[Rfam]
Nucleotides: 083
Base pairs, nucleotide, nucleotide: 002082003081004080005079006078007077
Number, partner (000 for none) and nucleotide at each position: 001000c002082g003081a004080c005079a006078g007077c008000g009000g010000u011000g012000a013000u014000g015000a016000u017000g018000a019000c020000g021000a022000c023000a024000u025000c026000a027000u028000g029000u030000c031000a032000u033000u034000u035000u036000a037000c038000u039000g040000a041000a042000u043000a044000u045000a046000u047000u048000u049000g050000a051000u052000g053000g054000u055000u056000u057000u058000a059000a060000g061000u062000c063000a064000c065000u066000a067000c068000c069000u070000c071000a072000u073000c074000u075000g076000a077007g078006c079005u080004g081003u082002c083000g

Description
Shown here is an 83-nucleotide RNA from Cyprinodon variegatus, a member of the family "Small nucleolar RNA SNORD11B". Pairs were carried over by alignment from the consensus structure, which was predicted with WAR. NCBI's taxonomy places the organism under Eukaryota, Teleostei, Euacanthomorphacea, Cyprinodontoidei, Cyprinodon. For this family Rfam cites "snoSeeker: an advanced computational package for screening of guide and orphan snoRNA genes in the human genome" (Yang et al., Nucleic Acids Res, 2006). The family is grouped with related families in Rfam's "SNORD11 clan".